RNA: Lysine riboswitch aptamer
RNA sequence: CGAUGAGGUAGAGGUCGCGAUUUUUAUUAGUAAGGUAACGGAGAUGCAAGAGACAUCAAUGAAGUUAUCCAAAAGGAAAAAUCGCCGAAGCUUGUCCGAGGUCUCAAAAUCGAACAGGCUGGGGCUGCUUCCGAAAGGAGCAGAACUGUCACGCAGCAAGCCAAUCACACACCGAGAAGGCACUGCGUGUUGAGCUAUCUUCAUG
Numbered sequence: 001c002g003a004u005g006a007g008g009u010a011g012a013g014g015u016c017g018c019g020a021u022u023u024u025u026a027u028u029a030g031u032a033a034g035g036u037a038a039c040g041g042a043g044a045u046g047c048a049a050g051a052g053a054c055a056u057c058a059a060u061g062a063a064g065u066u067a068u069c070c071a072a073a074a075g076g077a078a079a080a081a082u083c084g085c086c087g088a089a090g091c092u093u094g095u096c097c098g099a100g101g102u103c104u105c106a107a108a109a110u111c112g113a114a115c116a117g118g119c120u121g122g123g124g125c126u127g128c129u130u131c132c133g134a135a136a137g138g139a140g141c142a143g144a145a146c147u148g149u150c151a152c153g154c155a156g157c158a159a160g161c162c163a164a165u166c167a168c169a170c171a172c173c174g175a176g177a178a179g180g181c182a183c184u185g186c187g188u189g190u191u192g193a194g195c196u197a198u199c200u201u202c203a204u205g
Base pairs, nucleotide, nucleotide: 006200007199008198009197010196011195017085018084019083020082021081022080023079024078025077034069035068036067037066038065039064089120090119091118092117093116094115095114097112098111099110121147122146125143126142127141128140129139130138131137150189151188152187153186154185155184